[Rfam]
RNA: Small nucleolar RNA Z159/U59
Organism: Erythranthe guttata
RNA sequence: GCUUCUGAUGAUGACUAAACUAAAUAACUUUCGUUCUUCUGAGAAUAUUCUAUGUGGAAGAAAUUUGGAGACCUGAACUGAAGAAGC
Dot-bracket structure: ..((((...........................................................................))))..
Numbered sequence: 001g002c003u004u005c006u007g008a009u010g011a012u013g014a015c016u017a018a019a020c021u022a023a024a025u026a027a028c029u030u031u032c033g034u035u036c037u038u039c040u041g042a043g044a045a046u047a048u049u050c051u052a053u054g055u056g057g058a059a060g061a062a063a064u065u066u067g068g069a070g071a072c073c074u075g076a077a078c079u080g081a082a083g084a085a086g087c
Stems, first nucleotide, its partner, number of pairs: 003085004